[Rfam]
RNA: Ribosomal protein L10 leader
RNA sequence: AUUAAAUAUAAAUCCAUACUAAAGACAGUAGGUGGCUUAGGCAAUAAAUCCUACCGAGGUUGGAAUCAGGUAUUCAUAGACCUCAAAGAAAAAUACAGCCUCCGUCUUUAUUAGUCGGGGGUAUUUUUUAAGAAAAA
Numbered sequence: 001a002u003u004a005a006a007u008a009u010a011a012a013u014c015c016a017u018a019c020u021a022a023a024g025a026c027a028g029u030a031g032g033u034g035g036c037u038u039a040g041g042c043a044a045u046a047a048a049u050c051c052u053a054c055c056g057a058g059g060u061u062g063g064a065a066u067c068a069g070g071u072a073u074u075c076a077u078a079g080a081c082c083u084c085a086a087a088g089a090a091a092a093a094u095a096c097a098g099c100c101u102c103c104g105u106c107u108u109u110a111u112u113a114g115u116c117g118g119g120g121g122u123a124u125u126u127u128u129u130a131a132g133a134a135a136a137a
Stems, first nucleotide, its partner, number of pairs: 028054005035042002098122007106114002